[Rfam]
RNA sequence: AAGUACCACUGGGGGUGCCGAUUUUCCGGCUGAGACAAGCUGCGCUUGAUCCCUUCGUACCUGACCUGGAUAAUACCAGCGGAGGAAAUGUGGACCGAGCCGUUA
Numbered sequence: 001a002a003g004u005a006c007c008a009c010u011g012g013g014g015g016u017g018c019c020g021a022u023u024u025u026c027c028g029g030c031u032g033a034g035a036c037a038a039g040c041u042g043c044g045c046u047u048g049a050u051c052c053c054u055u056c057g058u059a060c061c062u063g064a065c066c067u068g069g070a071u072a073a074u075a076c077c078a079g080c081g082g083a084g085g086a087a088a089u090g091u092g093g094a095c096c097g098a099g100c101c102g103u104u105a
Stems, first nucleotide, its partner, number of pairs: 006093004011054004016048001017030004037047004060085003066079004
Background
Shown here is a 105-nucleotide sequence from Salisediminibacterium halotolerans, a member of the family "TPP riboswitch aptamer (THI element)". Its family is annotated with thiamine pyrophosphate binding in the Gene Ontology. The family's consensus secondary structure is taken from published work. The literature on the family includes a 2006 paper in Science by Thore et al., "Structure of the eukaryotic thiamine pyrophosphate riboswitch with its regulatory ligand". The match comes from Rfam's covariance-model search (70 bits).